[Rfam]
RNA sequence: UCUCGAUAACGGCAAACCUGACGAAAGUCAGGGACGCAAAGCUAAAGGGACUACAGUGUACAUGCACAAUGUCAGCCAGCUGCCGAA
Numbered sequence: 001u002c003u004c005g006a007u008a009a010c011g012g013c014a015a016a017c018c019u020g021a022c023g024a025a026a027g028u029c030a031g032g033g034a035c036g037c038a039a040a041g042c043u044a045a046a047g048g049g050a051c052u053a054c055a056g057u058g059u060a061c062a063u064g065c066a067c068a069a070u071g072u073c074a075g076c077c078a079g080c081u082g083c084c085g086a087a
Base pairs, nucleotide, nucleotide: 012037013036017032018031019030020029021028022027040081041080042079043078047077048076049073050072051071056067057066058065059064

Shown here is an 87-nucleotide sequence from Paenibacillus solanacearum, a member of the family "c-di-GMP-I riboswitch aptamer". From the family's description: GEMM was predicted in a large-scale screen for bacterial structured RNA regulatory elements. Genes associated with GEMM are involved in a diverse array of functions, including chemotaxis regulation, signal transduction, secretion and chitin. It scores 84 bits against the family's covariance model. The family's consensus secondary structure is taken from published work.